Record summary:
Rfam assigns this 84-nucleotide RNA from Tilletia indica to the family "tRNA". NCBI's taxonomy places the organism under Eukaryota, Opisthokonta, Ustilaginomycotina, Tilletiales, Tilletia.
[Rfam]
RNA sequence: GGUUGUAUAGUGUAGCGGUUAUCACGUCGGAUUCUGAUCAGAAUUACCAUUCCGUAGACCCCGGUUCGAUUCCGGGUACGACCU
Numbered sequence: 001g002g003u004u005g006u007a008u009a010g011u012g013u014a015g016c017g018g019u020u021a022u023c024a025c026g027u028c029g030g031a032u033u034c035u036g037a038u039c040a041g042a043a044u045u046a047c048c049a050u051u052c053c054g055u056a057g058a059c060c061c062c063g064g065u066u067c068g069a070u071u072c073c074g075g076g077u078a079c080g081a082c083c084u
Stems, first nucleotide, its partner, number of pairs: 001083007010025003028054004060076005
Dot-bracket structure: (((((((..(((..........)))..((((...................)))).....(((((.......)))))))))))).